S10-Clostridia ribosomal protein leader: a 103-nucleotide RNA from Paenibacillus albiflavus. The family's RNA type in Rfam is cis-regulatory leader. The match comes from Rfam's covariance-model search (36 bits). A reference for the family is Eckert and Weinberg (2020), "Discovery of 20 novel ribosomal leader candidates in bacteria and archaea", BMC Microbiol. NCBI's taxonomy places the organism under Bacteria, Bacillota, Bacilli, Paenibacillaceae, Paenibacillus.

[Rfam]
RNA sequence: ACGUUGCGAUGAUGCGGGAGGUUGCUGAUACACCCGGGCCCUUUGCCAUGGGAUAGGUUGUCAGGGGAUUUUCGCGGAGUAUGUCCGAUACGAAAUUGGGCGA
Numbered sequence: 001a002c003g004u005u006g007c008g009a010u011g012a013u014g015c016g017g018g019a020g021g022u023u024g025c026u027g028a029u030a031c032a033c034c035c036g037g038g039c040c041c042u043u044u045g046c047c048a049u050g051g052g053a054u055a056g057g058u059u060g061u062c063a064g065g066g067g068a069u070u071u072u073c074g075c076g077g078a079g080u081a082u083g084u085c086c087g088a089u090a091c092g093a094a095a096u097u098g099g100g101c102g103a
Stems, first nucleotide, its partner, number of pairs: 014075003018072004025064005084103002089100001091098001